[Rfam]
Annotation
This 102-nucleotide sequence from Salicibibacter halophilus belongs to the Rfam family "Purine riboswitch aptamer". Its family is annotated with purine nucleobase biosynthetic process in the Gene Ontology. Pairs were carried over by alignment from the consensus structure, which is taken from published work. Riboswitches are metabolite binding domains within certain messenger RNAs that serve as precision sensors for their corresponding targets. Allosteric rearrangement of mRNA structure is mediated by ligand binding, and this results in modulation of gene expression. The organism belongs to Salicibibacter, within Bacteria.

RNA sequence: CAUUAUAAAUUGAAAUAGUUUCAUAUAAUCGCGGGAAUACGGCUCGCGAGUCUCUACCGGAACACCGUAAAUGUUCCGACUAUGAUCGAUAGAUUUUCCAUC
Numbered sequence: 001c002a003u004u005a006u007a008a009a010u011u012g013a014a015a016u017a018g019u020u021u022c023a024u025a026u027a028a029u030c031g032c033g034g035g036a037a038u039a040c041g042g043c044u045c046g047c048g049a050g051u052c053u054c055u056a057c058c059g060g061a062a063c064a065c066c067g068u069a070a071a072u073g074u075u076c077c078g079a080c081u082a083u084g085a086u087c088g089a090u091a092g093a094u095u096u097u098c099c100a101u102c
Base pairs, nucleotide, nucleotide: 021085022084023083024082025081029049030048031047032046033045034044035043058078059077060076061075062074063073064072